[Rfam]
RNA: ASpks TB sRNA
RNA sequence: CUUCACCGAGCCGAGCAGCAGGGGCCGCUCACGGUCCUGCCCGUACGUGGCCAGGAUCGCCUGCGCCUC
Numbered sequence: 001c002u003u004c005a006c007c008g009a010g011c012c013g014a015g016c017a018g019c020a021g022g023g024g025c026c027g028c029u030c031a032c033g034g035u036c037c038u039g040c041c042c043g044u045a046c047g048u049g050g051c052c053a054g055g056a057u058c059g060c061c062u063g064c065g066c067c068u069c
Stems, first nucleotide, its partner, number of pairs: 015025002028065001030063001032059002037054003041050003